[Rfam]
Shown here is a 63-nucleotide sequence from Panagrellus redivivus, a member of the family "mir-7911 microRNA precursor family". The base pairs follow the family's consensus structure, which was predicted with RNAalifold.
RNA sequence: GCCCCCCGGAUGAUGCACCAUCGAUUGAGGUUGAGUUUAUCGAUGUGCCUUGACCAGGGGUAG
Numbered sequence: 001g002c003c004c005c006c007c008g009g010a011u012g013a014u015g016c017a018c019c020a021u022c023g024a025u026u027g028a029g030g031u032u033g034a035g036u037u038u039a040u041c042g043a044u045g046u047g048c049c050u051u052g053a054c055c056a057g058g059g060g061u062a063g
Stems, first nucleotide, its partner, number of pairs: 003060004008055002011052003015048004021042001023041003